Notes:
mir-239 microRNA precursor family: a 64-nucleotide RNA sequence from Bicyclus anynana. A search with the family's covariance model found it, with a score of 50 bits. The family's consensus secondary structure was predicted with RNAalifold. Gene Ontology terms of the family: RISC complex and miRNA-mediated post-transcriptional gene silencing.
RNA sequence: AUACUGUUAUACUACAUCAAGACACUGUAUAUUAUACAGUGUCUUGAUGUAGUAUAACAGUAGC
Numbered sequence: 001a002u003a004c005u006g007u008u009a010u011a012c013u014a015c016a017u018c019a020a021g022a023c024a025c026u027g028u029a030u031a032u033u034a035u036a037c038a039g040u041g042u043c044u045u046g047a048u049g050u051a052g053u054a055u056a057a058c059a060g061u062a063g064c
Stems, first nucleotide, its partner, number of pairs: 003061010015049009025039003029035002